[Rfam]
mir-27 microRNA precursor family: a 76-nucleotide sequence from Oryzias melastigma. A reference for the family is Yao et al. (2008), "MicroRNA profile of Marek's disease virus-transformed T-cell line MSB-1: predominance of virus-encoded microRNAs", J Virol. Its family is annotated with miRNA-mediated post-transcriptional gene silencing and RISC complex in the Gene Ontology. The organism belongs to Oryzias, within Eukaryota. The family has 82 seed sequences and 1,440 matches in Rfam 15.1.
RNA sequence: GUCAGGUGUAGAACUUAGUCAACUUCUGAACAGAGUCCAACAAGCGUGUUCACAGUGGCUAAGUUCUUCUCUCGAG
Numbered sequence: 001g002u003c004a005g006g007u008g009u010a011g012a013a014c015u016u017a018g019u020c021a022a023c024u025u026c027u028g029a030a031c032a033g034a035g036u037c038c039a040a041c042a043a044g045c046g047u048g049u050u051c052a053c054a055g056u057g058g059c060u061a062a063g064u065u066c067u068u069c070u071c072u073c074g075a076g
Stems, first nucleotide, its partner, number of pairs: 011066010027052006